[Rfam]
RNA sequence: AAAUGUGUUCUUUUAAUAUUUCUCUAGUAGGUUUUCUGAAGGAGAAAGCCUCC
Number, nucleotide and partner (000 for none) at each position: 001a000002a000003a000004u000005g000006u000007g000008u000009u000010c000011u000012u000013u000014u000015a000016a000017u000018a000019u000020u000021u000022c000023u000024c000025u000026a000027g000028u000029a000030g050031g049032u048033u047034u046035u045036c044037u043038g000039a000040a000041g000042g000043a037044g036045a035046a034047a033048g032049c031050c030051u000052c000053c000
RNA: U7 small nuclear RNA